[Rfam]
RNA: Small nucleolar RNA snR43
RNA sequence: CACUCCUGUUUCUGCCCCAAAUUCUUUUACACAGCCAUAGAAUUAUGGGUUCUACUUAUGGAGAAGAAAAAGCCAUUCAACGAACUUCGGACACUUUUGAUACAACCGUCCGUUGUUUUUUGGGUGGAUCGGGUGGUUAGGCUUUGUAUCCUUGCGUGACUGACUCGGAACGUUCCGGGAAAGUCUGAUCGGUCUCCACUAUAUUU
Number, nucleotide and partner (000 for none) at each position: 001c000002a000003c063004u062005c061006c060007u000008g000009u000010u000011u000012c000013u000014g000015c000016c049017c048018c047019a046020a044021a043022u042023u041024c040025u039026u000027u000028u000029a000030c000031a000032c000033a000034g000035c000036c000037a000038u000039a025040g024041a023042a022043u021044u020045a000046u019047g018048g017049g016050u000051u000052c000053u000054a000055c000056u000057u000058a000059u000060g006061g005062a004063g003064a000065a000066g000067a000068a000069a000070a000071a000072g000073c127074c126075a125076u124077u123078c122079a121080a120081c000082g118083a117084a116085c115086u000087u000088c112089g111090g110091a109092c108093a000094c000095u000096u000097u000098u000099g000100a000101u000102a000103c000104a000105a000106c000107c000108g092109u091110c090111c089112g088113u000114u000115g085116u084117u083118u082119u000120u080121u079122g078123g077124g076125u075126g074127g073128a000129u000130c000131g000132g000133g199134u198135g197136g196137u000138u000139a195140g194141g193142c192143u191144u000145u000146g000147u000148a000149u000150c000151c000152u000153u000154g185155c000156g000157u182158g000159a000160c179161u000162g000163a000164c000165u178166c177167g176168g175169a174170a000171c000172g000173u000174u169175c168176c167177g166178g165179g160180a000181a000182a157183g000184u000185c154186u000187g000188a000189u000190c000191g143192g142193u141194c140195u139196c136197c135198a134199c133200u000201a000202u000203a000204u000205u000206u000